The family of this 88-nucleotide sequence from Paenibacillus ferrarius is "c-di-GMP-I riboswitch aptamer". The organism belongs to Paenibacillus, within Bacteria. GEMM was predicted in a large-scale screen for bacterial structured RNA regulatory elements. Genes associated with GEMM are involved in a diverse array of functions, including chemotaxis regulation, signal transduction, secretion and chitin. Rfam links the family to the GO term cyclic-di-GMP binding. A search with the family's covariance model found it, with a score of 72 bits.

[Rfam]
RNA sequence: CUCCGAUAAAGGCAAAUCUAGCGAAAACUAGAGACGCAAAGCUAAAGGGCCUUCCUUAGUAGAACUAAGUUGGCAGCCAGUUACCGAA
Numbered sequence: 001c002u003c004c005g006a007u008a009a010a011g012g013c014a015a016a017u018c019u020a021g022c023g024a025a026a027a028c029u030a031g032a033g034a035c036g037c038a039a040a041g042c043u044a045a046a047g048g049g050c051c052u053u054c055c056u057u058a059g060u061a062g063a064a065c066u067a068a069g070u071u072g073g074c075a076g077c078c079a080g081u082u083a084c085c086g087a088a
Stems, first nucleotide, its partner, number of pairs: 012037002017032005040082004047078002049074003056068004
Dot-bracket structure: ...........((...(((((......)))))...))..((((...(((((....((((.....))))...)))..))))))......